This 356-nucleotide sequence from Guyparkeria sp. XI15 belongs to the Rfam family "Bacterial RNase P class A". By type it is a ribozyme.

[Rfam]
Nucleotides: 356
Stems, first nucleotide, its partner, number of pairs: 001352010011341001012321007020039008044339003048336005053226004060258004065222005070084005085099001086097004100217002105215002107211002122156002124152003129147002132144001164182006183206001184204005189198003230278004240269006249263005285304008
Number, partner (000 for none) and nucleotide at each position: 001352g002351g003350a004349g005348u006347u007346g008345g009344c010343c011341a012321g013320g014319u015318u016317g017316u018315c019000g020039c021038g022037g023036c024035g025034u026033c027032u028000u029000u030000c031000g032027a033026g034025g035024c036023g037022u038021c039020g040000a041000g042000g043000a044339a045338a046337g047000u048336c049335c050334g051333g052332g053226c054225u055224c056223c057000a058000c059000a060258g061257g062256g063255c064000a065222c066221g067220g068219u069218g070084c071083c072082a073081g074080g075000u076000a077000a078000c079000g080074c081073c082072u083071g084070g085099g086097c087096g088095g089094c090000g091000c092000g093000a094089g095088u096087c097086g098000a099085c100217g101216g102000a103000a104000a105215g106214u107211g108210c109000a110000g111000c112000a113000g114000a115000g116000a117000g118000u119000a120000g121000a122156c123155c124152g125151c126150c127000g128000a129147u130146g131000g132144c133000c134000g135000c136000a137000g138000c139000a140000a141000u142000g143000c144132g145000g146130c147129a148000c149000a150126g151125g152124u153000a154000a155123g156122g157000g158000u159000g160000a161000a162000a163000g164182g165181g166180u167179g168178c169177g170000g171000u172000a173000a174000g175000a176000g177169c178168g179167c180166a181165c182164c183206g184204c185203a186202c187201g188200c189198g190197u191196g192000g193000c194000a195000a196191c197190a198189c199000g200188g201187c202186g203185u204184g205000g206183c207000a208000c209000g210108g211107c212000a213000a214106a215105c216101c217100c218069c219068a220067c221066c222065g223056g224055g225054a226053g227000c228000a229000a230278g231277g232276c233275c234000a235000a236000a237000u238000a239000g240269g241268g242267g243266a244265a245264c246000a247000a248000u249263g250262g251261c252260g253259u254000g255063g256062c257061c258060c259253g260252c261251g262250c263249u264245g265244u266243u267242c268241c269240c270000g271000g272000g273000u274000a275233g276232g277231c278230u279000g280000c281000u282000c283000g284000a285304g286303c287302g288301c289300a290299a291298c292297g293000g294000u295000g296000a297292c298291g299290u300289u301288g302287c303286g304285c305000c306000c307000a308000g309000a310000u311000g312000a313000a314000u315018g316017g317016c318015a319014a320013c321012c322000c323000a324000c325000g326000a327000c328000a329000g330000a331000a332052c333051c334050c335049g336048g337046c338045u339044u340000a341011u342000c343010g344009g345008c346007c347006g348005a349004c350003u351002c352001c353000a354000c355000c356000c